Rfam assigns this 296-nucleotide RNA sequence from Acanthoscelides obtectus to the family "Metazoan signal recognition particle RNA". Lineage of the source: Eukaryota > Hexapoda > Endopterygota > Bruchini > Acanthoscelides. The family has 91 seed sequences and 383,523 matches in Rfam 15.1. The signal recognition particle (SRP) is a universally conserved ribonucleoprotein. The base pairs follow the family's consensus structure, which is taken from published work. Rfam classes the family as a non-coding RNA gene. Rfam links the family to the GO terms SRP-dependent cotranslational protein targeting to membrane, signal sequence recognition and signal recognition particle, endoplasmic reticulum targeting. Its Rfam clan is "SRP clan".
RNA sequence: ACUGGGAGCGUGGCGUCUCCUGUAAUCCAGCUACUUGGAGGUCGGGUUCAGAGGAUGGUUUGAGGUCGGGACUCCUGGCACAGGGCGUUUCGCGUUGACCGGGCGUCCACACUAAGCUCGGCGUCGAUAUGGGCACCCUGUGGGAGCUCGGGGUGGCCAGGUCGGCUAAGGAGGGGCGAACCGGGCCAGGGGGGAAACCCAGCAGCCAAAAGUCCCCGCGUUGUGCAGUAGUGGGAUCGCGUCUGGGAGUGGAAACCCUGUGACAGCCCAACCAAUAAAGCUAGACCUGGAUCUUU
Numbered sequence: 001a002c003u004g005g006g007a008g009c010g011u012g013g014c015g016u017c018u019c020c021u022g023u024a025a026u027c028c029a030g031c032u033a034c035u036u037g038g039a040g041g042u043c044g045g046g047u048u049c050a051g052a053g054g055a056u057g058g059u060u061u062g063a064g065g066u067c068g069g070g071a072c073u074c075c076u077g078g079c080a081c082a083g084g085g086c087g088u089u090u091c092g093c094g095u096u097g098a099c100c101g102g103g104c105g106u107c108c109a110c111a112c113u114a115a116g117c118u119c120g121g122c123g124u125c126g127a128u129a130u131g132g133g134c135a136c137c138c139u140g141u142g143g144g145a146g147c148u149c150g151g152g153g154u155g156g157c158c159a160g161g162u163c164g165g166c167u168a169a170g171g172a173g174g175g176g177c178g179a180a181c182c183g184g185g186c187c188a189g190g191g192g193g194g195a196a197a198c199c200c201a202g203c204a205g206c207c208a209a210a211a212g213u214c215c216c217c218g219c220g221u222u223g224u225g226c227a228g229u230a231g232u233g234g235g236a237u238c239g240c241g242u243c244u245g246g247g248a249g250u251g252g253a254a255a256c257c258c259u260g261u262g263a264c265a266g267c268c269c270a271a272c273c274a275a276u277a278a279a280g281c282u283a284g285a286c287c288u289g290g291a292u293c294u295u296u
Stems, first nucleotide, its partner, number of pairs: 001042003004021005026039003044294008056283006064273003068269003075266003079262007089253005095247001099246008107235002110233005116226002119223006125164004130159003134155007142147001166170001173216005184207003191200003